[Rfam]
RNA sequence: UCACAUGUGGUGCCGGGGAAACAAAAACUCUGAGUUCUGCCAGCUUCAGAGUUUUGUUACCCCGGCUCUCUGUGGG
Numbered sequence: 001u002c003a004c005a006u007g008u009g010g011u012g013c014c015g016g017g018g019a020a021a022c023a024a025a026a027a028c029u030c031u032g033a034g035u036u037c038u039g040c041c042a043g044c045u046u047c048a049g050a051g052u053u054u055u056g057u058u059a060c061c062c063c064g065g066c067u068c069u070c071u072g073u074g075g076g
Stems, first nucleotide, its partner, number of pairs: 001076002004074004009069002012066006020058003024055010034044002
This 76-nucleotide RNA sequence from Branchiostoma floridae belongs to the Rfam family "mir-4872 microRNA precursor family". A search with the family's covariance model found it, with a score of 87 bits. Rfam 15.1 lists 72 matches to the family in 3 species.